Shown here is a 68-nucleotide sequence from Thermococcus barophilus, a member of the family "Pab160 RNA". The literature on the family includes a 2008 paper in Nucleic Acids Res by Muller et al., "Combined in silico and experimental identification of the Pyrococcus abyssi H/ACA sRNAs and their target sites in ribosomal RNAs". Taxonomically the source falls in Thermococcus barophilus (Archaea, Methanobacteriati, Methanobacteriota, Thermococcus). A search with the family's covariance model found it, with a score of 62 bits. The pairing is the family consensus, mapped onto this sequence. It is annotated as an H/ACA-box small nucleolar RNA.
RNA sequence: GCCCCGGGCAACCGUGGGGAAUGAGCACGGAGGCGAGCUGUGAGUUCCCUCCGCUCCCCCGGGGCACA
Number, nucleotide and partner (000 for none) at each position: 001g065002c064003c063004c062005c061006g060007g059008g058009c000010a000011a000012c000013c000014g000015u000016g050017g049018g048019g047020a046021a045022u044023g000024a000025g038026c037027a000028c033029g000030g000031a000032g000033g028034c000035g000036a000037g026038c025039u000040g000041u000042g000043a000044g022045u021046u020047c019048c018049c017050u016051c000052c000053g000054c000055u000056c000057c000058c008059c007060c006061g005062g004063g003064g002065c001066a000067c000068a000